[Rfam]
RNA sequence: GGGUAAUGUCUCCUGCACCCAUAUCACCGGAGGCACUCGGUCAUGCUGUGGGCUGCCAUGCAGCCUUAGACGUUUAUCGUCAAAGGUAUGAUGAUGAGGACGGGUUGAAUGCCCG
Number, nucleotide and partner (000 for none) at each position: 001g020002g019003g018004u017005a000006a000007u035008g034009u033010c032011u031012c030013c029014u000015g000016c000017a004018c003019c002020c001021a000022u000023a000024u000025c000026a000027c000028c000029g013030g012031a011032g010033g009034c008035a007036c098037u097038c096039g095040g092041u091042c090043a089044u088045g087046c086047u085048g000049u000050g066051g065052g064053c063054u062055g061056c060057c000058a000059u000060g056061c055062a054063g053064c052065c051066u050067u000068a000069g081070a080071c079072g078073u000074u000075u000076a000077u000078c072079g071080u070081c069082a000083a000084a000085g047086g046087u045088a044089u043090g042091a041092u040093g000094a000095u039096g038097a037098g036099g000100a000101c115102g114103g113104g112105u111106u000107g000108a000109a000110u000111g105112c104113c103114c102115g101
epsC RNA: a 115-nucleotide sequence from Paenibacillus bovis. It scores 98 bits against the family's covariance model.